A member of the RNA family "Small nucleolar RNA ZL8", 82 nucleotides long. Gene Ontology terms of the family: RNA processing and nucleolus. On this family, see Kishore et al., Genome Biol 2013: "Insights into snoRNA biogenesis and processing from PAR-CLIP of snoRNA core proteins and small RNA sequencing". Rfam classes the family as a C/D-box small nucleolar RNA.
RNA sequence: CCAGAGUGGUAAUGAUGACCUGGUUGGACUAGAGUCUCUGAGCAUUUCUCUGAGGAUCUUUGAAACCACCUGAUCCACUCUA
Dot-bracket structure: ..(((((((........(.(.(((.(....(((.((((.(((.....))).)))).)))......).))).).)))))))).